[Rfam]
RNA sequence: AACUCAAUUAUGUUAUUACACACACGUAUUGGCACAUGCGUAGGGGUGCUCUGACCGCAAGGCUGGGGUCGGUCGUGUAGGGUAACGUGGAGGUAUAAC
Numbered sequence: 001a002a003c004u005c006a007a008u009u010a011u012g013u014u015a016u017u018a019c020a021c022a023c024a025c026g027u028a029u030u031g032g033c034a035c036a037u038g039c040g041u042a043g044g045g046g047u048g049c050u051c052u053g054a055c056c057g058c059a060a061g062g063c064u065g066g067g068g069u070c071g072g073u074c075g076u077g078u079a080g081g082g083u084a085a086c087g088u089g090g091a092g093g094u095a096u097a098a099c
Base pairs, nucleotide, nucleotide: 023089024088025087026086027085028083029082030081036078037077038076039075040073041072043070048069049068050067051066052065

Rfam assigns this 99-nucleotide RNA from Sodalis-like endosymbiont of Proechinophthirus fluctus to the family "t44 RNA". The source organism's lineage runs through Bacteria, Pseudomonadota, Gammaproteobacteria, Bruguierivoracaceae and Sodalis. The match comes from Rfam's covariance-model search (46 bits). Pairs were carried over by alignment from the consensus structure, which was predicted with LocARNA. On this family, see Tjaden et al., Nucleic Acids Res 2002: "Transcriptome analysis of Escherichia coli using high-density oligonucleotide probe arrays". Rfam classes the family as a small RNA. From the family's description: This family consists of a number of bacterial RNA genes of between 135 and 170 bases in length. The t44 gene has been identified in several species of enteric bacteria but homologs have also been identified in Pseudomonas and Coxiella species.